Rfam assigns this 81-nucleotide RNA sequence from Polypterus senegalus to the family "drz-agam-1 ribozyme".
RNA sequence: GGCUGGCAAAAUCCCAUCACCACCUCCUCGCGGUGCCGGCUGGAAACAACGACCCCAUGGGAAGUUGGCCAGCGGUGAGGG
Dot-bracket structure: ............(((..(((((((.......)))............((((..((.....))..))))......)))).)))
Rfam 15.1 lists 10,507 matches to the family in 53 species. Gene Ontology term of the family: catalytic activity.